This 62-nucleotide RNA sequence from Cephalotus follicularis belongs to the Rfam family "Plastid-psbA-4 3UTR RNA". Its Rfam clan is "Plastid-psbA 3UTR RNA clan". The literature on the family includes a 2023 paper in Plant Commun by Richter et al., "Retrograde signaling in plants: A critical review focusing on the GUN pathway and beyond". About the family: Plastid psbA-4 is a non-coding RNA (ncRNA) present in plastids. It was identified in inverted repeat sequences in the 3 prime untranslate region (3UTR) of photosystem II quinone-binding protein (psbA).
RNA sequence: AAAAUUUAGGAGCAAUAACCAAUUUCUUGUUGUAUCAAGAAGGUUGGUUAUUGCUCCUAAAU
Numbered sequence: 001a002a003a004a005u006u007u008a009g010g011a012g013c014a015a016u017a018a019c020c021a022a023u024u025u026c027u028u029g030u031u032g033u034a035u036c037a038a039g040a041a042g043g044u045u046g047g048u049u050a051u052u053g054c055u056c057c058u059a060a061a062u
Base pairs, nucleotide, nucleotide: 006060007059008058009057010056011055012054013053014052015051016050017049021045022044024041025040026039027038028037029036